[Rfam]
RNA: eL15-Euryarchaeota ribosomal protein leader
Organism: Halopiger goleimassiliensis
RNA sequence: CCUGUUCACGCGGCGGUGCAGUCGACGCACCGUUGCCACAGGUAGGGAUGUGAUCCCGAAACUCGGGAUUGAACCAGGAA
Numbered sequence: 001c002c003u004g005u006u007c008a009c010g011c012g013g014c015g016g017u018g019c020a021g022u023c024g025a026c027g028c029a030c031c032g033u034u035g036c037c038a039c040a041g042g043u044a045g046g047g048a049u050g051u052g053a054u055c056c057c058g059a060a061a062c063u064c065g066g067g068a069u070u071g072a073a074c075c076a077g078g079a080a
Base pairs, nucleotide, nucleotide: 001042002041003040004039005038045075046074052070053069054068055067056066057065058064